The family of this 71-nucleotide sequence from Wenxinia marina is "L2-Alphaproteobacteria ribosomal protein leader". It is annotated as a cis-regulatory leader. Rfam's curators put it in the seed alignment. The literature on the family includes a 2020 paper in BMC Microbiol by Eckert and Weinberg, "Discovery of 20 novel ribosomal leader candidates in bacteria and archaea". NCBI's taxonomy places the organism under Bacteria, Pseudomonadati, Pseudomonadota, Rhodobacterales, Wenxinia marina.
RNA sequence: UGGGACCUUCGGGGCCCUUCACUGACAGCCGGGCGCCAGGCGCGCCCGCAAAGCAAACGGAAGACAGGAAA
Numbered sequence: 001u002g003g004g005a006c007c008u009u010c011g012g013g014g015c016c017c018u019u020c021a022c023u024g025a026c027a028g029c030c031g032g033g034c035g036c037c038a039g040g041c042g043c044g045c046c047c048g049c050a051a052a053g054c055a056a057a058c059g060g061a062a063g064a065c066a067g068g069a070a071a
Base pairs, nucleotide, nucleotide: 002017003016004015006014007013008012028049030048031047032046033043034042035041036040